[Rfam]
The family of this 103-nucleotide sequence from Erysipelothrix rhusiopathiae is "Purine riboswitch aptamer".
RNA sequence: AAUAUCCAUGUUUUUACGAAUCGUAUAUCAUCACUAAUAUGGAGUGAUAGUUUCUAGCCGAUACCAAUGUAAAUUUCGGACUACGAUAGGAAAGUUUUUUUCC
Numbered sequence: 001a002a003u004a005u006c007c008a009u010g011u012u013u014u015u016a017c018g019a020a021u022c023g024u025a026u027a028u029c030a031u032c033a034c035u036a037a038u039a040u041g042g043a044g045u046g047a048u049a050g051u052u053u054c055u056a057g058c059c060g061a062u063a064c065c066a067a068u069g070u071a072a073a074u075u076u077c078g079g080a081c082u083a084c085g086a087u088a089g090g091a092a093a094g095u096u097u098u099u100u101u102c103c
Stems, first nucleotide, its partner, number of pairs: 020087006030048006058079004063074001